[Rfam]
RNA sequence: GGCGAUAAACGAACUCCGUAAUAAACCUAUCGGACCCGGGGGCGGUACCCGGCGCCUCCACCCGAGGCCAUGAAGCAAAACUGCGUGGCCUGGGGCGGGGGCGAAAUAGGAUCGACGAGGGCGUAAAGGGUGCUUUUUCGCUCGGCAUGAUACCGCCGUUAUCGGGUCAAACCUUAUAGUUGCCAAUGACAACUAUGCUCCGGUGGCCGUCGCUGCGUAA
Numbered sequence: 001g002g003c004g005a006u007a008a009a010c011g012a013a014c015u016c017c018g019u020a021a022u023a024a025a026c027c028u029a030u031c032g033g034a035c036c037c038g039g040g041g042g043c044g045g046u047a048c049c050c051g052g053c054g055c056c057u058c059c060a061c062c063c064g065a066g067g068c069c070a071u072g073a074a075g076c077a078a079a080a081c082u083g084c085g086u087g088g089c090c091u092g093g094g095g096c097g098g099g100g101g102c103g104a105a106a107u108a109g110g111a112u113c114g115a116c117g118a119g120g121g122c123g124u125a126a127a128g129g130g131u132g133c134u135u136u137u138u139c140g141c142u143c144g145g146c147a148u149g150a151u152a153c154c155g156c157c158g159u160u161a162u163c164g165g166g167u168c169a170a171a172c173c174u175u176a177u178a179g180u181u182g183c184c185a186a187u188g189a190c191a192a193c194u195a196u197g198c199u200c201c202g203g204u205g206g207c208c209g210u211c212g213c214u215g216c217g218u219a220a
Stems, first nucleotide, its partner, number of pairs: 001142005014132001016130002026121003030118003036052005053103007143158004
Notes: The family of this 220-nucleotide RNA from Methylocystis heyeri is "permuted transfer-messenger RNA". The organism belongs to Methylocystis, within Bacteria. Rfam links the family to the GO term RNA catabolic process.